[Rfam]
RNA sequence: ACAAAGGCUCUUUUCAGAGCCACCCACACUGUCUGUACAGAGCUU
Numbered sequence: 001a002c003a004a005a006g007g008c009u010c011u012u013u014u015c016a017g018a019g020c021c022a023c024c025c026a027c028a029c030u031g032u033c034u035g036u037a038c039a040g041a042g043c044u045u
Base pairs, nucleotide, nucleotide: 006021007020008019009018010017011016
RNA: Histone 3' UTR stem-loop
Organism: Hymenochirus boettgeri